[Rfam]
RNA sequence: GAGGGGGAAGACGGGAGGAAAGAAGGGAGUGGUUCCAUCACGCCUCCUCACUCCUCUCCUCCCGUCUUCUCCUCUC
Numbered sequence: 001g002a003g004g005g006g007g008a009a010g011a012c013g014g015g016a017g018g019a020a021a022g023a024a025g026g027g028a029g030u031g032g033u034u035c036c037a038u039c040a041c042g043c044c045u046c047c048u049c050a051c052u053c054c055u056c057u058c059c060u061c062c063c064g065u066c067u068u069c070u071c072c073u074c075u076c
Stems, first nucleotide, its partner, number of pairs: 004072015022056001024055004029051003
This 76-nucleotide RNA sequence from Homo sapiens belongs to the Rfam family "mir-483 microRNA precursor family". Taxonomically the source falls in Homo (Eukaryota, Chordata, Craniata, Euteleostomi). The sequence is in the family's curated seed alignment.